[Rfam]
RNA sequence: AGGGCCUGGGAAAAGGCUGCUGUGUGGUUGGGUCCUUGCAAACACAACCUUGUACCAGCCGGCCUGAUCUCUUGCCCUAGAAUAAUCUUAUGCAGACUCCUUUCUAGAGUCUGCCCCAUGCAGUAGCAGGUGUGAGCAUUCUUGCAGCAUUUUGAUGGUCAUGUAUGAUACUGCAUACAAAA
Numbered sequence: 001a002g003g004g005c006c007u008g009g010g011a012a013a014a015g016g017c018u019g020c021u022g023u024g025u026g027g028u029u030g031g032g033u034c035c036u037u038g039c040a041a042a043c044a045c046a047a048c049c050u051u052g053u054a055c056c057a058g059c060c061g062g063c064c065u066g067a068u069c070u071c072u073u074g075c076c077c078u079a080g081a082a083u084a085a086u087c088u089u090a091u092g093c094a095g096a097c098u099c100c101u102u103u104c105u106a107g108a109g110u111c112u113g114c115c116c117c118a119u120g121c122a123g124u125a126g127c128a129g130g131u132g133u134g135a136g137c138a139u140u141c142u143u144g145c146a147g148c149a150u151u152u153u154g155a156u157g158g159u160c161a162u163g164u165a166u167g168a169u170a171c172u173g174c175a176u177a178c179a180a181a182a
Stems, first nucleotide, its partner, number of pairs: 003077002006074001008072003015064004019059004024055002026049005032043002088109002092104001094102002118176008127167002133161003137157004144151001